Source information
Shown here is a 49-nucleotide sequence, a member of the family "L31-Actinobacteria ribosomal protein leader".

RNA sequence: CCGGUUCCGGUUCACGACUUCGAAAUCCUUCGAGGCCGACCCGGCGACC
Numbered sequence: 001c002c003g004g005u006u007c008c009g010g011u012u013c014a015c016g017a018c019u020u021c022g023a024a025a026u027c028c029u030u031c032g033a034g035g036c037c038g039a040c041c042c043g044g045c046g047a048c049c
Stems, first nucleotide, its partner, number of pairs: 003049003007044004015038002018035006
The family is grouped with related families in Rfam's "Ribosomal Protein L31 Leader clan".